[Rfam]
RNA: SAM riboswitch aptamer (S box leader)
Organism: Chitinophagales bacterium
RNA sequence: CACUUAUCAAGAAAGGCAGAGGGACUGGCCCGAUGAAGCCUUAGCAACCAUUAAACAGGAAUGUUUGAAAGGUGCUAAUUCCAGUCACGUCAUAGGCGUGAGCAGAUAAGCA
Numbered sequence: 001c002a003c004u005u006a007u008c009a010a011g012a013a014a015g016g017c018a019g020a021g022g023g024a025c026u027g028g029c030c031c032g033a034u035g036a037a038g039c040c041u042u043a044g045c046a047a048c049c050a051u052u053a054a055a056c057a058g059g060a061a062u063g064u065u066u067g068a069a070a071g072g073u074g075c076u077a078a079u080u081c082c083a084g085u086c087a088c089g090u091c092a093u094a095g096g097c098g099u100g101a102g103c104a105g106a107u108a109a110g111c112a
Base pairs, nucleotide, nucleotide: 003110004109005108006107007106008105013042014041015040016039017038021031022030023029025084026083027082028081043076044075045074046073048072049071051068052067053066054065055064056063080104085101086100087099088098089097090096